A member of the RNA family "ALIL pseudoknot" from Thiomonas bhubaneswarensis, 116 nucleotides long. The family's RNA type in Rfam is cis-regulatory element. The base pairs follow the family's consensus structure, which is taken from published work. Taxonomically the source falls in Thiomonas (Bacteria, Pseudomonadati, Pseudomonadota, Burkholderiales).

RNA sequence: CGCCUAUUGCGCCCUGCGCGGAUCGACCGCCAUCACAAGAAGUGAACGCCUUCAUGGAUGAGCACCGGGGUGCUCACGGGGUCGAGCCGAUCUGCACCGCCUUGCAGGUCGCCCCG
Number, nucleotide and partner (000 for none) at each position: 001c000002g000003c000004c000005u000006a000007u000008u000009g000010c000011g000012c000013c000014c000015u000016g031017c000018g030019c029020g028021g027022a000023u000024c000025g000026a000027c021028c020029g019030c018031c016032a000033u000034c000035a000036c000037a000038a000039g000040a000041a000042g000043u000044g000045a000046a000047c000048g000049c000050c000051u000052u000053c000054a000055u000056g000057g000058a000059u000060g000061a000062g000063c000064a000065c000066c000067g000068g000069g000070g000071u000072g000073c000074u000075c000076a000077c116078g115079g114080g113081g112082u000083c000084g000085a000086g000087c000088c111089g110090a000091u108092c107093u106094g105095c104096a103097c000098c000099g000100c000101c000102u000103u096104g095105c094106a093107g092108g091109u000110c089111g088112c081113c080114c079115c078116g077